Rfam assigns this 72-nucleotide sequence from Leiothrix lutea to the family "Small nucleolar RNA SNORD19". Lineage of the source: Eukaryota > Eumetazoa > Chordata > Australaves > Leiothrix. For this family Rfam cites "RNomics: an experimental approach that identifies 201 candidates for novel, small, non-messenger RNAs in mouse" (Huttenhofer et al., EMBO J, 2001). The family is grouped with related families in Rfam's "SNORD19 clan". It is annotated as a C/D-box small nucleolar RNA.

[Rfam]
RNA sequence: GAGCUAUGAGGAUUUAAAGGAAUCUGAGAUUCCGUUGAAGACAUAAGAUCCAACUCUGAGCUCACUAAAAAG
Numbered sequence: 001g002a003g004c005u006a007u008g009a010g011g012a013u014u015u016a017a018a019g020g021a022a023u024c025u026g027a028g029a030u031u032c033c034g035u036u037g038a039a040g041a042c043a044u045a046a047g048a049u050c051c052a053a054c055u056c057u058g059a060g061c062u063c064a065c066u067a068a069a070a071a072g
Stems, first nucleotide, its partner, number of pairs: 001063004